[Rfam]
RNA sequence: UGCAGCCCCGUCAAAUCCAGUCCCUGCCUCCUCCGUGGCGGGGACUGGCCAGCCAGCUGCCGCAACAACUUCCGUAGUGCACGGGCCCCGCGUCCCCUCCCGUGGGACCCCGGGGAUAAAAUCAUGCCACAGACAUUG
Numbered sequence: 001u002g003c004a005g006c007c008c009c010g011u012c013a014a015a016u017c018c019a020g021u022c023c024c025u026g027c028c029u030c031c032u033c034c035g036u037g038g039c040g041g042g043g044a045c046u047g048g049c050c051a052g053c054c055a056g057c058u059g060c061c062g063c064a065a066c067a068a069c070u071u072c073c074g075u076a077g078u079g080c081a082c083g084g085g086c087c088c089c090g091c092g093u094c095c096c097c098u099c100c101c102g103u104g105g106g107a108c109c110c111c112g113g114g115g116a117u118a119a120a121a122u123c124a125u126g127c128c129a130c131a132g133a134c135a136u137u138g
Stems, first nucleotide, its partner, number of pairs: 002060004018047011074130002077127003086115005
Shown here is a 138-nucleotide sequence from Eudyptula minor, a member of the family "Small nucleolar RNA SNORA5". The source organism's lineage runs through Eukaryota, Opisthokonta, Sarcopterygii, Amniota and Eudyptula. Clan: SNORA5 clan. A search with the family's covariance model found it, with a score of 79 bits. Rfam 15.1 lists 2,226 matches to the family in 629 species. Rfam describes the family as follows. ACA5 is a member of the H/ACA class of snoRNA that guide the sites of modification of uridines to pseudouridines.